[Rfam]
Source information: Rfam assigns this 80-nucleotide RNA from Chania multitudinisentens to the family "RybB RNA". About the family: This ncRNA was identified in a large scale screen of E. coli. The function of this short RNA is unknown. The exact 5' and 3' ends of this RNA are uncertain. A reference for the family is Wassarman et al. (2001), "Identification of novel small RNAs using comparative genomics and microarrays", Genes Dev. NCBI's taxonomy places the organism under Bacteria, Pseudomonadati, Gammaproteobacteria, Yersiniaceae, Chania multitudinisentens. Rfam classes the family as a small RNA.
RNA sequence: ACUGCUUUUCUUUGAUGUCCCCAAUUUGUGGAGCCCGUUAGUCCCGCCGUUUCAGGUUCAAGGCUAGCGGGUUUUUUAUU
Numbered sequence: 001a002c003u004g005c006u007u008u009u010c011u012u013u014g015a016u017g018u019c020c021c022c023a024a025u026u027u028g029u030g031g032a033g034c035c036c037g038u039u040a041g042u043c044c045c046g047c048c049g050u051u052u053c054a055g056g057u058u059c060a061a062g063g064c065u066a067g068c069g070g071g072u073u074u075u076u077u078a079u080u
Base pairs, nucleotide, nucleotide: 032073033072034071035070036069037068038067039066040065041064042063043062